mir-9440 microRNA precursor family: a 68-nucleotide sequence from Nematostella vectensis.
RNA sequence: CAUAAUCAACGAGAGUGUCAACCUGCCGCGAAGGUCUAUGAGUGGUCUGUUGCUUCUCUUUGUGGAGC
Dot-bracket structure: .....(((..(((((...((((..(((((..(......)..)))))..))))...)))))..)))...

About this RNA:
The sequence is in the family's curated seed alignment. Rfam links the family to the GO terms miRNA-mediated post-transcriptional gene silencing and RISC complex.